[Rfam]
RNA sequence: CGCCCUCCAUCCGCUGCGUUCUCUGCUACAAACGAACUGCCCCUGCGUAGGCCCGCAGUUGAGCGUUCUUCUAUCCUUGCAGAUGAGAAAUUCGGAGUAAUCUUCACCCUAUACCGCUGUCUUUGGCCGAAUAUGGCUGGAGACAGUUGGACUGCCCGCGAGGGCCUGGCACGAUUCCGUGCCUGCAAUUGGCAUCAGAAAUCUACAGGGCUUCGAGAUCGAGAUGCAGGCUCGCCUGUGUCUCUUUUCUCGGGGGUUUCCCUAUGGAAGAGCCAUUGCGAAGAUUGUUGGCAUCGCCUCAACUUUAGUGCAAUCGCAGCGGGAUCUCACCCUUUUCCCUACAGUGUAGGGAAUCGGGAAGGUUUCCAUUCGAUUCCGAUUACUCUGGAGGGCG
Numbered sequence: 001c002g003c004c005c006u007c008c009a010u011c012c013g014c015u016g017c018g019u020u021c022u023c024u025g026c027u028a029c030a031a032a033c034g035a036a037c038u039g040c041c042c043c044u045g046c047g048u049a050g051g052c053c054c055g056c057a058g059u060u061g062a063g064c065g066u067u068c069u070u071c072u073a074u075c076c077u078u079g080c081a082g083a084u085g086a087g088a089a090a091u092u093c094g095g096a097g098u099a100a101u102c103u104u105c106a107c108c109c110u111a112u113a114c115c116g117c118u119g120u121c122u123u124u125g126g127c128c129g130a131a132u133a134u135g136g137c138u139g140g141a142g143a144c145a146g147u148u149g150g151a152c153u154g155c156c157c158g159c160g161a162g163g164g165c166c167u168g169g170c171a172c173g174a175u176u177c178c179g180u181g182c183c184u185g186c187a188a189u190u191g192g193c194a195u196c197a198g199a200a201a202u203c204u205a206c207a208g209g210g211c212u213u214c215g216a217g218a219u220c221g222a223g224a225u226g227c228a229g230g231c232u233c234g235c236c237u238g239u240g241u242c243u244c245u246u247u248u249c250u251c252g253g254g255g256g257u258u259u260c261c262c263u264a265u266g267g268a269a270g271a272g273c274c275a276u277u278g279c280g281a282a283g284a285u286u287g288u289u290g291g292c293a294u295c296g297c298c299u300c301a302a303c304u305u306u307a308g309u310g311c312a313a314u315c316g317c318a319g320c321g322g323g324a325u326c327u328c329a330c331c332c333u334u335u336u337c338c339c340u341a342c343a344g345u346g347u348a349g350g351g352a353a354u355c356g357g358g359a360a361g362g363u364u365u366c367c368a369u370u371c372g373a374u375u376c377c378g379a380u381u382a383c384u385c386u387g388g389a390g391g392g393c394g
Stems, first nucleotide, its partner, number of pairs: 001394004007388003012321007022083004035060006093378005102283004154165004168183005185279004191274003207263003322366003326362002
Source information:
A member of the RNA family "Nuclear RNase P" from Exophiala dermatitidis, 394 nucleotides long. Ribonuclease P (RNase P) is a ubiquitous endoribonuclease, found in archaea, bacteria and eukarya as well as chloroplasts and mitochondria. Lineage of the source: Eukaryota > Pezizomycotina > Eurotiomycetes > Herpotrichiellaceae > Exophiala dermatitidis. For this family Rfam cites "Ribonuclease P: unity and diversity in a tRNA processing ribozyme" (Frank and Pace, Annu Rev Biochem, 1998). A search with the family's covariance model found it, with a score of 46 bits. The family's consensus secondary structure is taken from published work.